[Rfam]
RNA sequence: GUUCUUACAAUGUUCGGUAAAGUGUCUGUUAAGUUUAACCGGAUAUUGUAAGAACGG
Dot-bracket structure: (((((((((((.((((((.(((..(......).))).)))))).)))))))))))..

mir-3015 microRNA precursor family: a 57-nucleotide sequence from Acyrthosiphon pisum. The family has 4 seed sequences and 82 matches in Rfam 15.1. Rfam links the family to the GO terms RISC complex and miRNA-mediated post-transcriptional gene silencing.